[Rfam]
RNA sequence: AUGAUUGUAUGAGGAGAGAACGCUGAUGCGUCGCCGAAGGAGCAAGUAACGAUUGUUAUGAAUCUCUCAGGCAAAAAGACUCAUGCAGGACG
Numbered sequence: 001a002u003g004a005u006u007g008u009a010u011g012a013g014g015a016g017a018g019a020a021c022g023c024u025g026a027u028g029c030g031u032c033g034c035c036g037a038a039g040g041a042g043c044a045a046g047u048a049a050c051g052a053u054u055g056u057u058a059u060g061a062a063u064c065u066c067u068c069a070g071g072c073a074a075a076a077a078g079a080c081u082c083a084u085g086c087a088g089g090a091c092g
Stems, first nucleotide, its partner, number of pairs: 006087008020031004033072003036068002040066003046059002
Rfam assigns this 92-nucleotide RNA from Sporosarcina sp. Marseille-Q4063 to the family "Glycine riboswitch aptamer". Pairs were carried over by alignment from the consensus structure. It scores 71 bits against the family's covariance model.